[Rfam]
RNA sequence: GUUGCAAAUUCAAGGCCAUGGCAGUAGCACCCACAGCAUGGCCCUGUCAGAUUCCAGUGAAUCUGUAAAUUUUGCU
Numbered sequence: 001g002u003u004g005c006a007a008a009u010u011c012a013a014g015g016c017c018a019u020g021g022c023a024g025u026a027g028c029a030c031c032c033a034c035a036g037c038a039u040g041g042c043c044c045u046g047u048c049a050g051a052u053u054c055c056a057g058u059g060a061a062u063c064u065g066u067a068a069a070u071u072u073u074g075c076u
Stems, first nucleotide, its partner, number of pairs: 014043004020076005026070001027039001048065007
The record is a 76-nucleotide RNA from Alligator mississippiensis, which matches "Mammalian CPEB3 ribozyme" in Rfam.
It scores 40 bits against the family's covariance model.
The base pairs follow the family's consensus structure, which is taken from published work.
The source organism's lineage runs through Eukaryota, Opisthokonta, Gnathostomata, Crocodylia and Alligator.